About this RNA
The record is a 71-nucleotide sequence from Solanum tuberosum, which matches "MIR8041 microRNA precursor family" in Rfam. Pairs were carried over by alignment from the consensus structure, which was predicted with RNAalifold. Taxonomically the source falls in Solanum (Eukaryota, Embryophyta, Magnoliopsida, Mesangiospermae). The match comes from Rfam's covariance-model search (83 bits).
RNA sequence: GUGCUUUGCUAUUUUCAUUGACUUUAAGAUAUCAUGAUAUUGAAAAUUCAGUAAUGUAUAGCAAAGAUCCU
Numbered sequence: 001g002u003g004c005u006u007u008g009c010u011a012u013u014u015u016c017a018u019u020g021a022c023u024u025u026a027a028g029a030u031a032u033c034a035u036g037a038u039a040u041u042g043a044a045a046a047u048u049c050a051g052u053a054a055u056g057u058a059u060a061g062c063a064a065a066g067a068u069c070c071u
Stems, first nucleotide, its partner, number of pairs: 001069001004066009015054001017052005023046003028041005